[Rfam]
RNA: Histone 3' UTR stem-loop
Organism: Dreissena polymorpha
RNA sequence: ACAACGGCCCUUCUUAGGGCCACCCAUAUUCUCGAGAGAAUAGUCU
Numbered sequence: 001a002c003a004a005c006g007g008c009c010c011u012u013c014u015u016a017g018g019g020c021c022a023c024c025c026a027u028a029u030u031c032u033c034g035a036g037a038g039a040a041u042a043g044u045c046u
Base pairs, nucleotide, nucleotide: 006021007020008019009018010017011016